[Rfam]
RNA sequence: UCCGGCCCGUGCAACGUGGCCUCUGUCCGAUCCGGGCCUGGCGUACUUCCCCGACGCCAGGACCGCGCACUCGGACAGGGACCUCGGUGCAGGGGCCCACACCC
Numbered sequence: 001u002c003c004g005g006c007c008c009g010u011g012c013a014a015c016g017u018g019g020c021c022u023c024u025g026u027c028c029g030a031u032c033c034g035g036g037c038c039u040g041g042c043g044u045a046c047u048u049c050c051c052c053g054a055c056g057c058c059a060g061g062a063c064c065g066c067g068c069a070c071u072c073g074g075a076c077a078g079g080g081a082c083c084u085c086g087g088u089g090c091a092g093g094g095g096c097c098c099a100c101a102c103c104c
Stems, first nucleotide, its partner, number of pairs: 010091004015086002018083002021080010032067001033065003037061008
RNA: mraW RNA